The family of this 227-nucleotide RNA sequence is "RT-2 RNA".
It is annotated as a small RNA.

[Rfam]
RNA sequence: UAGAACGAGACCAAGUAAGCCCAUCCGGGUCGAAAGCCGUGUCAAGUGGAAUGGAAGGAGCGGUUAUCCUUCGGCCAUGUGCCGUAAAUAAGAUCCGGGACGAGAGCGGGCGGACGCUUCUUGCAUGGUACGAGGUCGCGCGAAAUCCUCGUAUUUCAUGCCCGUAUCCUACGUGGCUACAGUAACGCGCCAAGUCAUGCCCGGUGACCAAAAUUAUCGACUACAGA
Numbered sequence: 001u002a003g004a005a006c007g008a009g010a011c012c013a014a015g016u017a018a019g020c021c022c023a024u025c026c027g028g029g030u031c032g033a034a035a036g037c038c039g040u041g042u043c044a045a046g047u048g049g050a051a052u053g054g055a056a057g058g059a060g061c062g063g064u065u066a067u068c069c070u071u072c073g074g075c076c077a078u079g080u081g082c083c084g085u086a087a088a089u090a091a092g093a094u095c096c097g098g099g100a101c102g103a104g105a106g107c108g109g110g111c112g113g114a115c116g117c118u119u120c121u122u123g124c125a126u127g128g129u130a131c132g133a134g135g136u137c138g139c140g141c142g143a144a145a146u147c148c149u150c151g152u153a154u155u156u157c158a159u160g161c162c163c164g165u166a167u168c169c170u171a172c173g174u175g176g177c178u179a180c181a182g183u184a185a186c187g188c189g190c191c192a193a194g195u196c197a198u199g200c201c202c203g204g205u206g207a208c209c210a211a212a213a214u215u216a217u218c219g220a221c222u223a224c225a226g227a
Stems, first nucleotide, its partner, number of pairs: 005042003019030004072084004095204005101199001102169001104168002107164005116124002127155009173198005